The family of this 96-nucleotide sequence from Streptococcus intermedius is "Purine riboswitch aptamer".
[Rfam]
RNA sequence: AUUAAUAAUAGAAUCAUUACUUAUUUAUAUUAUGAAUUUGGCAUAAUGUUUCUACAAGGUACCUAAUACCUAACAAUAAGUAAGUCUUCAAAUUUC
Dot-bracket structure: .................((((((((...((((((.......)))))).........(((((.....)))))...))))))))..............
Pairs were carried over by alignment from the consensus structure, which is taken from published work. The match comes from Rfam's covariance-model search (52 bits). The organism belongs to Streptococcus intermedius, within Bacteria.